The record is a 103-nucleotide RNA from Cohnella sp. AR92, which matches "Purine riboswitch aptamer" in Rfam.
RNA sequence: UAACAUGAACCUGCAUUCUCUUGUAUAAGUCCGCUAAUACGGCGCGGGCGUAUCUACAGGCAACCGAUAAUUGCCCCAGGCUACAAGAGGCGCUCCGCUCAGA
Numbered sequence: 001u002a003a004c005a006u007g008a009a010c011c012u013g014c015a016u017u018c019u020c021u022u023g024u025a026u027a028a029g030u031c032c033g034c035u036a037a038u039a040c041g042g043c044g045c046g047g048g049c050g051u052a053u054c055u056a057c058a059g060g061c062a063a064c065c066g067a068u069a070a071u072u073g074c075c076c077c078a079g080g081c082u083a084c085a086a087g088a089g090g091c092g093c094u095c096c097g098c099u100c101a102g103a
Base pairs, nucleotide, nucleotide: 018089019088020087021086022085023084024083025082029049030048031047032046033045034044059075060074061073062072063071